A member of the RNA family "Actinobacteria sRNA Ms_IGR-7" from Geodermatophilus sp. TF02-6, 116 nucleotides long. The base pairs follow the family's consensus structure. A search with the family's covariance model found it, with a score of 47 bits. The source organism's lineage runs through Bacteria, Bacillati, Actinomycetota, Geodermatophilales and Geodermatophilus. By type it is a small RNA.
[Rfam]
RNA sequence: GCGGAUGCCCUUCUGUGUGGACCGUUGUGACCUUCGACAAGCCACAUCGUUCCUGGUCAGAGGGGCAUUCGUGCGUUACAACCCGCGCCGAUCAGCCAUUUCGACGGUGGAUCGAG
Numbered sequence: 001g002c003g004g005a006u007g008c009c010c011u012u013c014u015g016u017g018u019g020g021a022c023c024g025u026u027g028u029g030a031c032c033u034u035c036g037a038c039a040a041g042c043c044a045c046a047u048c049g050u051u052c053c054u055g056g057u058c059a060g061a062g063g064g065g066c067a068u069u070c071g072u073g074c075g076u077u078a079c080a081a082c083c084c085g086c087g088c089c090g091a092u093c094a095g096c097c098a099u100u101u102c103g104a105c106g107g108u109g110g111a112u113c114g115a116g
Stems, first nucleotide, its partner, number of pairs: 001072008009063004014059002018055001019053003023049002026046001028044001031041001097114001100111004